[Rfam]
RNA sequence: AUACGCGACGCGGGAGAGCCGGCUCCGGUCGGCACCGAAGGAGCAAGCCUCCCCGCCAAUCUCUCAGGUCUUGUACCGCGUCGAACUG
Numbered sequence: 001a002u003a004c005g006c007g008a009c010g011c012g013g014g015a016g017a018g019c020c021g022g023c024u025c026c027g028g029u030c031g032g033c034a035c036c037g038a039a040g041g042a043g044c045a046a047g048c049c050u051c052c053c054c055g056c057c058a059a060u061c062u063c064u065c066a067g068g069u070c071u072u073g074u075a076c077c078g079c080g081u082c083g084a085a086c087u088g
Stems, first nucleotide, its partner, number of pairs: 006083008019032004034069003037065002041063003047056002
The family of this 88-nucleotide RNA sequence from Rathayibacter tanaceti is "Glycine riboswitch aptamer". A search with the family's covariance model found it, with a score of 62 bits. Its family is annotated with glycine biosynthetic process in the Gene Ontology. Taxonomically the source falls in Rathayibacter (Bacteria, Bacillati, Actinomycetota, Microbacteriaceae).